[Rfam]
RNA sequence: CACCGCCCGUCGCUCCUACCGAUUGAAAGAUAUGAUGAAUUGUUUGGACAAGAAGAAGGGGGAUUAUAUCUCCUUUUUUCUGGAAAAACCGUAAAUCCUAUCUUUUAAAGGAAGGAGAAGUCGUAACAAGGUUUCCGUAGGUGAACCUGCGGAAGGAUCAUUA
Numbered sequence: 001c002a003c004c005g006c007c008c009g010u011c012g013c014u015c016c017u018a019c020c021g022a023u024u025g026a027a028a029g030a031u032a033u034g035a036u037g038a039a040u041u042g043u044u045u046g047g048a049c050a051a052g053a054a055g056a057a058g059g060g061g062g063a064u065u066a067u068a069u070c071u072c073c074u075u076u077u078u079u080c081u082g083g084a085a086a087a088a089c090c091g092u093a094a095a096u097c098c099u100a101u102c103u104u105u106u107a108a109a110g111g112a113a114g115g116a117g118a119a120g121u122c123g124u125a126a127c128a129a130g131g132u133u134u135c136c137g138u139a140g141g142u143g144a145a146c147c148u149g150c151g152g153a154a155g156g157a158u159c160a161u162u163a
Stems, first nucleotide, its partner, number of pairs: 003130001005127001008123002011120001013117005019111002023107001025106008034097003039092002042089004049082002052079008061071003132155010
The record is a 163-nucleotide part of an RNA from Plasmodium vivax, which matches "Eukaryotic small subunit ribosomal RNA" in Rfam.